Shown here is a 162-nucleotide RNA sequence from Gossypium australe, a member of the family "mir-166 microRNA precursor family". NCBI's taxonomy places the organism under Eukaryota, Tracheophyta, Mesangiospermae, Malvaceae, Gossypium. The family has 31 seed sequences and 2,599 matches in Rfam 15.1. Rfam describes the family as follows. This family represents the plant microRNA (miRNA) precursor mir-166.
RNA sequence: GUUGAUGGGAAUGUUGUUUGGCUCGAGGUCAUAUAGGUUGAUCUUUUAUAUAUAAUUUCCAUGAAAUUUUCUUGGAUUUAUUUAAAUUUUCCGGGAAAGUUUCUGGAUAUGUGUAUAUAUAUAGCCCUAUAUGAUCUCGGACCAGGCUUCAUUCCCGUCAGC
Numbered sequence: 001g002u003u004g005a006u007g008g009g010a011a012u013g014u015u016g017u018u019u020g021g022c023u024c025g026a027g028g029u030c031a032u033a034u035a036g037g038u039u040g041a042u043c044u045u046u047u048a049u050a051u052a053u054a055a056u057u058u059c060c061a062u063g064a065a066a067u068u069u070u071c072u073u074g075g076a077u078u079u080a081u082u083u084a085a086a087u088u089u090u091c092c093g094g095g096a097a098a099g100u101u102u103c104u105g106g107a108u109a110u111g112u113g114u115a116u117a118u119a120u121a122u123a124g125c126c127c128u129a130u131a132u133g134a135u136c137u138c139g140g141a142c143c144a145g146g147c148u149u150c151a152u153u154c155c156c157g158u159c160a161g162c
Stems, first nucleotide, its partner, number of pairs: 001162013016147006024139014